[Rfam]
RNA sequence: GAUCGCCUUCGGGGUCGGGUGAAAUUCCCAACCGGCGGUGAUGAGAAAAAAAUUCUCUUAGCCCGUGACCCGUUUUCAUUGCUUAUUUUUUAUCUGAAAACGGUGGAUUUGGUGUAAUUCCAAAGCCGACAGUAAAGUCUGGAUGGGAGAAGGUAUGU
Numbered sequence: 001g002a003u004c005g006c007c008u009u010c011g012g013g014g015u016c017g018g019g020u021g022a023a024a025u026u027c028c029c030a031a032c033c034g035g036c037g038g039u040g041a042u043g044a045g046a047a048a049a050a051a052a053u054u055c056u057c058u059u060a061g062c063c064c065g066u067g068a069c070c071c072g073u074u075u076u077c078a079u080u081g082c083u084u085a086u087u088u089u090u091u092a093u094c095u096g097a098a099a100a101c102g103g104u105g106g107a108u109u110u111g112g113u114g115u116a117a118u119u120c121c122a123a124a125g126c127c128g129a130c131a132g133u134a135a136a137g138u139c140u141g142g143a144u145g146g147g148a149g150a151a152g153g154u155a156u157g158u
Base pairs, nucleotide, nucleotide: 005154006153007152008151009150010149017029018028019027031138032137033128034127035066036065037064038063061126062125070103071102072101073100074099075098076097077096078095108124109123110122111121112120130141131140132139
Dot-bracket structure: ....((((((......(((.......))).[[((((((......................[[))))...(((((((((................)))))))))....(((((.......)))))]])).(((....]]))).......))))))....
This 158-nucleotide sequence from Bacillus sp. 1NLA3E belongs to the Rfam family "FMN riboswitch aptamer (RFN element)". Its family is annotated with FMN binding in the Gene Ontology. Rfam's curators write: The RFN element is a highly conserved domain that is found frequently in the 5'-untranslated regions of prokaryotic mRNAs that encode for flavin mononucleotide (FMN) biosynthesis and transport proteins. The organism belongs to Bacillus, within Bacteria.